[Rfam]
RNA sequence: UGGACCGUAUGACAAGAAGAGAGCGCACGCCCGUAAACAACCAUGAUCCGUUCAUGGGUGAUGACAAGCGUGCUCUCUCUCCUUGUCACACAACA
Numbered sequence: 001u002g003g004a005c006c007g008u009a010u011g012a013c014a015a016g017a018a019g020a021g022a023g024c025g026c027a028c029g030c031c032c033g034u035a036a037a038c039a040a041c042c043a044u045g046a047u048c049c050g051u052u053c054a055u056g057g058g059u060g061a062u063g064a065c066a067a068g069c070g071u072g073c074u075c076u077c078u079c080u081c082c083u084u085g086u087c088a089c090a091c092a093a094c095a
Stems, first nucleotide, its partner, number of pairs: 010088005016082001020078002023075001025073006033065002
MIR535 microRNA precursor family: a 95-nucleotide sequence from Pyrus ussuriensis x Pyrus communis. The base pairs follow the family's consensus structure, which was predicted with RNAalifold.